Description:
The family of this 68-nucleotide RNA sequence from Anser cygnoides is "Small nucleolar RNA SNORD75". For this family Rfam cites "Purified box C/D snoRNPs are able to reproduce site-specific 2'-O-methylation of target RNA in vitro" (Galardi et al., Mol Cell Biol, 2002). Its family is annotated with nucleolus and RNA processing in the Gene Ontology. Rfam classes the family as a C/D-box small nucleolar RNA.
[Rfam]
RNA sequence: AGCCUGUGAUGUUUUCAGAUAUUAGAGUAGUGGACAGAAGUAAUUUCUGAAAACUCUGCACUGAGGCU
Numbered sequence: 001a002g003c004c005u006g007u008g009a010u011g012u013u014u015u016c017a018g019a020u021a022u023u024a025g026a027g028u029a030g031u032g033g034a035c036a037g038a039a040g041u042a043a044u045u046u047c048u049g050a051a052a053a054c055u056c057u058g059c060a061c062u063g064a065g066g067c068u
Stems, first nucleotide, its partner, number of pairs: 001068004